[Rfam]
The family of this 322-nucleotide RNA from Salvator merianae is "7SK RNA". The source organism's lineage runs through Eukaryota, Craniata, Sauria, Teiioidea and Salvator. The match comes from Rfam's covariance-model search (284 bits). The base pairs follow the family's consensus structure, which is taken from published work. It is annotated as a non-coding RNA gene. 7SK was discovered as an abundant small nuclear RNA in the mid-70s but a possible function has only recently been suggested.

RNA sequence: GGAUGUGAGGGUGAUCUGGCUGCGACAUCUGUCACCCCAUUGAUCACCAGGGUUGAUUCGGCUGAUCUGGCUAGGCAAGUGUCCCCUUCCUCCCUCACCAUUCCAUGUGUGUCCCUCCCGAAGCAGUAUGCUCGGUGGAAGAGGAUGACCGUCCCAGACAGAGUGUACUGUUCUUCAGUCAAGGGUAUACAAUAGCUGUGCUUCCCUGCUAGAACCUCCAAACAAGCUCAAGGUCCAUUUGUAGGAGACAUAGGGGAGUCAAGCUUCCAAGAUUCCAGACACAUCCAAGUAAGGCACUGGAUGUGGCAGUUUGCAAUUCUCU
Numbered sequence: 001g002g003a004u005g006u007g008a009g010g011g012u013g014a015u016c017u018g019g020c021u022g023c024g025a026c027a028u029c030u031g032u033c034a035c036c037c038c039a040u041u042g043a044u045c046a047c048c049a050g051g052g053u054u055g056a057u058u059c060g061g062c063u064g065a066u067c068u069g070g071c072u073a074g075g076c077a078a079g080u081g082u083c084c085c086c087u088u089c090c091u092c093c094c095u096c097a098c099c100a101u102u103c104c105a106u107g108u109g110u111g112u113c114c115c116u117c118c119c120g121a122a123g124c125a126g127u128a129u130g131c132u133c134g135g136u137g138g139a140a141g142a143g144g145a146u147g148a149c150c151g152u153c154c155c156a157g158a159c160a161g162a163g164u165g166u167a168c169u170g171u172u173c174u175u176c177a178g179u180c181a182a183g184g185g186u187a188u189a190c191a192a193u194a195g196c197u198g199u200g201c202u203u204c205c206c207u208g209c210u211a212g213a214a215c216c217u218c219c220a221a222a223c224a225a226g227c228u229c230a231a232g233g234u235c236c237a238u239u240u241g242u243a244g245g246a247g248a249c250a251u252a253g254g255g256g257a258g259u260c261a262a263g264c265u266u267c268c269a270a271g272a273u274u275c276c277a278g279a280c281a282c283a284u285c286c287a288a289g290u291a292a293g294g295c296a297c298u299g300g301a302u303g304u305g306g307c308a309g310u311u312u313g314c315a316a317u318u319c320u321c322u
Stems, first nucleotide, its partner, number of pairs: 001104003005098007013089002018086002024083005030077004037070003042067004047061002113165001115163003118135004123131002136158001143154003195264003201258002204255005216247004222242005287322001289320001291317001294314002296310004